[Rfam]
Shown here is an 80-nucleotide sequence from Alligator mississippiensis, a member of the family "Mammalian CPEB3 ribozyme".
RNA sequence: AGGGGUCACAAGGUUGAGGCCAUAGCAGAAGUACUUAUGGUAUGGUCCUAUCAGAUUCCAAGGAAUCUGAAAAUUCUGCU
Numbered sequence: 001a002g003g004g005g006u007c008a009c010a011a012g013g014u015u016g017a018g019g020c021c022a023u024a025g026c027a028g029a030a031g032u033a034c035u036u037a038u039g040g041u042a043u044g045g046u047c048c049u050a051u052c053a054g055a056u057u058c059c060a061a062g063g064a065a066u067c068u069g070a071a072a073a074u075u076c077u078g079c080u
Stems, first nucleotide, its partner, number of pairs: 013048001018047004024080007031043003052069007
The organism belongs to Alligator, within Eukaryota. It scores 45 bits against the family's covariance model.